[Rfam]
Nucleotides: 358
Stems, first nucleotide, its partner, number of pairs: 001354010011343001012323007020047002023044004028039003052341003056338005061229004068260004073225005078092005093107001094105004108220002113218002115214002130159002134153008167185006187209001188207008233280004242271006251265005287306003291302004
Number, partner (000 for none) and nucleotide at each position: 001354c002353c003352g004351g005350u006349c007348g008347g009346c010345u011343a012323g013322g014321c015320g016319g017318u018317c019000g020047c021046g022000u023044c024043g025042c026041c027000a028039c029038c030037c031000c032000u033000u034000c035000g036000g037030g038029g039028g040000c041026g042025g043024u044023g045000c046021c047020g048000a049000g050000g051000a052341a053340c054339g055000u056338c057337c058336g059335g060334g061229c062228u063227c064226c065000g066000c067000a068260g069259a070258g071257c072000a073225g074224g075223g076222c077221g078092g079091u080090g081089g082088a083000u084000a085000a086000c087000g088082u089081c090080c091079a092078c093107c094105c095104g096103g097102g098000g099000c100000a101000a102097c103096c104095c105094g106000c107093g108220a109219g110000a111000a112000a113218g114217u115214g116213c117000a118000a119000c120000a121000g122000a123000g124000a125000g126000c127000a128000g129000g130159u131158c132000c133000a134153c135152c136151g137150a138149u139148c140147g141146g142000g143000c144000g145000a146141c147140c148139g149138a150137u151136c152135g153134g154000c155000c156000a157000g158131g159130a160000g161000u162000g163000a164000a165000a166000c167185g168184g169183u170182g171181g172180g173000g174000c175000a176000a177000g178000a179000g180172c181171c182170c183169a184168c185167c186000a187209g188207c189206g190205u191204c192203g193202c194201g195200u196000g197000c198000g199000a200195g201194c202193g203192c204191g205190g206189c207188g208000g209187c210000u211000a212000g213116g214115c215000a216000a217114a218113c219109c220108u221077c222076g223075c224074c225073c226064g227063g228062a229061g230000c231000a232000a233280g234279a235278c236277c237000a238000g239000a240000c241000a242271g243270c244269g245268g246267a247266u248000c249000a250000u251265g252264g253263g254262g255261c256000u257071g258070c259069u260068c261255g262254u263253c264252c265251c266247g267246u268245c269244c270243g271242c272000g273000g274000g275000u276000a277236g278235g279234u280233c281000g282000c283000u284000g285000g286000a287306g288305g289304g290000c291302u292301g293300c294299a295000g296000c297000a298000a299294u300293g301292c302291a303000u304289c305288c306287c307000c308000g309000a310000g311000a312000g313000a314000g315000a316000u317018g318017a319016c320015c321014g322013u323012c324000c325000a326000c327000g328000a329000c330000a331000g332000a333000a334060c335059c336058c337057g338056g339054c340053g341052u342000a343011u344000c345010g346009g347008c348007c349006g350005g351004c352003c353002g354001g355000u356000u357000c358000a
Shown here is a 358-nucleotide sequence from Agrococcus pavilionensis, a member of the family "Bacterial RNase P class A".
The organism belongs to Agrococcus pavilionensis, within Bacteria.
The match comes from Rfam's covariance-model search (259 bits).